[Rfam]
RNA sequence: UGAUAUAAGUGUCAUAAGUCUAUCCUCCACUUGUGCUUGCACAAAAGUGGAGGAUAGACUUCAUGACACGCCCCACAUGGAGCACGUAAGGACGAUUUAUCGGCCUGAGAGUGCGGAAUGUGGGAGGAACGCGAGAGCGCAUAGCGCGAAGCGGUCCGAUAUCG
Numbered sequence: 001u002g003a004u005a006u007a008a009g010u011g012u013c014a015u016a017a018g019u020c021u022a023u024c025c026u027c028c029a030c031u032u033g034u035g036c037u038u039g040c041a042c043a044a045a046a047g048u049g050g051a052g053g054a055u056a057g058a059c060u061u062c063a064u065g066a067c068a069c070g071c072c073c074c075a076c077a078u079g080g081a082g083c084a085c086g087u088a089a090g091g092a093c094g095a096u097u098u099a100u101c102g103g104c105c106u107g108a109g110a111g112u113g114c115g116g117a118a119u120g121u122g123g124g125a126g127g128a129a130c131g132c133g134a135g136a137g138c139g140c141a142u143a144g145c146g147c148g149a150a151g152c153g154g155u156c157c158g159a160u161a162u163c164g
Stems, first nucleotide, its partner, number of pairs: 001164006010068004016061016032043004072124007082114004089106003093102003126157003130153003137147004
A member of the RNA family "Clostridiales-1 RNA" from Oribacterium sp. C9, 164 nucleotides long.
Pairs were carried over by alignment from the consensus structure, which is taken from published work.
NCBI's taxonomy places the organism under Bacteria, Bacillati, Clostridia, Lachnospirales, Oribacterium.
By type it is a small RNA.
The match comes from Rfam's covariance-model search (119 bits).